[Rfam]
Rfam assigns this 75-nucleotide RNA to the family "RAGATH-18 RNA". The base pairs follow the family's consensus structure, which is taken from published work.
RNA sequence: CCCUUGGAGCGUUAUACCAAACGAAAGUAGCUAGACUAUUUUAUAGCAGUAAAAUCGGGCGCGAUGAAUAGGGAA
Numbered sequence: 001c002c003c004u005u006g007g008a009g010c011g012u013u014a015u016a017c018c019a020a021a022c023g024a025a026a027g028u029a030g031c032u033a034g035a036c037u038a039u040u041u042u043a044u045a046g047c048a049g050u051a052a053a054a055u056c057g058g059g060c061g062c063g064a065u066g067a068a069u070a071g072g073g074a075a
Base pairs, nucleotide, nucleotide: 001073002072003071004070009062010061011060012059013058022057023056024055030050031049032048034047